Notes:
Bacterial RNase P class B: a 369-nucleotide RNA sequence from Streptococcus agalactiae. The organism belongs to Streptococcus, within Bacteria. Rfam's curators put it in the seed alignment. Rfam describes the family as follows. Ribonuclease P (RNase P) is a ubiquitous endoribonuclease, found in archaea, bacteria and eukarya as well as chloroplasts and mitochondria. Its best characterised activity is the generation of mature 5'-ends of tRNAs by cleaving the 5'-leader elements of precursor-tRNAs. Cellular RNase Ps are ribonucleoproteins. RNA from bacterial RNase Ps retains its catalytic activity in the absence of the protein subunit, i.e. it is a ribozyme. It is annotated as a ribozyme.
RNA sequence: AUUUUUGGAUAAUCGCGUAGUAUUGAUAUACUAUGAGGAAAGUCCAUGCUAGCACUGGCUGUGAUGCCAGUAGUGUUUGUGCUAGGCGAAAAAAUAAGCCUAGGGAGAUAGCUAGCUAUCUUACGGCAAGCAAAAGGGCUAAGUCUUUGGAUAUGCCUGAAUAGCUUUGAAAGUGCCACAGUGACGUAGUUUCUAGGGAAAUCUAGAAAGUGGAACGCGGUAAACCCCUCAAGCUAGCAACCCAAACUUUGGUAGGGGCAUGGGAUAGUUGGAAUGAGAACAAUCUAUCCUGACUGCUUUGCAGUAGACAGAUGAUUAUCGAAAGAAACAAUUCCUAGUUGUUUCUGGAACAAAACAUGGCUUAUAGAA
Numbered sequence: 001a002u003u004u005u006u007g008g009a010u011a012a013u014c015g016c017g018u019a020g021u022a023u024u025g026a027u028a029u030a031c032u033a034u035g036a037g038g039a040a041a042g043u044c045c046a047u048g049c050u051a052g053c054a055c056u057g058g059c060u061g062u063g064a065u066g067c068c069a070g071u072a073g074u075g076u077u078u079g080u081g082c083u084a085g086g087c088g089a090a091a092a093a094a095u096a097a098g099c100c101u102a103g104g105g106a107g108a109u110a111g112c113u114a115g116c117u118a119u120c121u122u123a124c125g126g127c128a129a130g131c132a133a134a135a136g137g138g139c140u141a142a143g144u145c146u147u148u149g150g151a152u153a154u155g156c157c158u159g160a161a162u163a164g165c166u167u168u169g170a171a172a173g174u175g176c177c178a179c180a181g182u183g184a185c186g187u188a189g190u191u192u193c194u195a196g197g198g199a200a201a202u203c204u205a206g207a208a209a210g211u212g213g214a215a216c217g218c219g220g221u222a223a224a225c226c227c228c229u230c231a232a233g234c235u236a237g238c239a240a241c242c243c244a245a246a247c248u249u250u251g252g253u254a255g256g257g258g259c260a261u262g263g264g265a266u267a268g269u270u271g272g273a274a275u276g277a278g279a280a281c282a283a284u285c286u287a288u289c290c291u292g293a294c295u296g297c298u299u300u301g302c303a304g305u306a307g308a309c310a311g312a313u314g315a316u317u318a319u320c321g322a323a324a325g326a327a328a329c330a331a332u333u334c335c336u337a338g339u340u341g342u343u344u345c346u347g348g349a350a351c352a353a354a355a356c357a358u359g360g361c362u363u364a365u366a367g368a369a
Stems, first nucleotide, its partner, number of pairs: 004369003007365001008320007016035006040363003044360005049237005054071006077232003081228001082103006104124001105122006125227002128167004136158004143152003173225002175221003190209008241257003261292007293305005324346009